[Rfam]
The record is a 191-nucleotide RNA sequence from Jaculus jaculus, which matches "Small nucleolar RNA SNORA73 family" in Rfam. Rfam describes the family as follows. U17 (SNORA73A and SNORA73B) also known as E1 belongs to the H/ACA class of small nucleolar RNAs (snoRNAs). Vertebrate U17 is intron-encoded and ranges in length from 200-230 nucleotides, longer than most snoRNAs. For this family Rfam cites "5'ETS rRNA processing facilitated by four small RNAs: U14, E3, U17, and U3" (Enright et al., RNA, 1996). Clan: snR30-U17 clan. NCBI's taxonomy places the organism under Eukaryota, Eumetazoa, Gnathostomata, Rodentia, Jaculus.
RNA sequence: CCAACGUUGGAUAUCCCGGGAGGUCACUGUCCCUGGGCUCUGUCCAGGUGGCGUAGGGGAGCACAGGAAUGUACAGUCCCUUUCCACAACGUUGGAGAUGAAGCUGGGCCUUGAGUCUGCGCUUGCAUAUUCCUACGACUUCUCAGCCCUGUGGACCAUGACUGAGGAGAUAAACCAUGCAGGAAACAAAC
Numbered sequence: 001c002c003a004a005c006g007u008u009g010g011a012u013a014u015c016c017c018g019g020g021a022g023g024u025c026a027c028u029g030u031c032c033c034u035g036g037g038c039u040c041u042g043u044c045c046a047g048g049u050g051g052c053g054u055a056g057g058g059g060a061g062c063a064c065a066g067g068a069a070u071g072u073a074c075a076g077u078c079c080c081u082u083u084c085c086a087c088a089a090c091g092u093u094g095g096a097g098a099u100g101a102a103g104c105u106g107g108g109c110c111u112u113g114a115g116u117c118u119g120c121g122c123u124u125g126c127a128u129a130u131u132c133c134u135a136c137g138a139c140u141u142c143u144c145a146g147c148c149c150u151g152u153g154g155a156c157c158a159u160g161a162c163u164g165a166g167g168a169g170a171u172a173a174a175c176c177a178u179g180c181a182g183g184a185a186a187c188a189a190a191c
Stems, first nucleotide, its partner, number of pairs: 001095007009045005015037003019030001021028002048087004057080004061074001063072003122183007139169006146156001148154002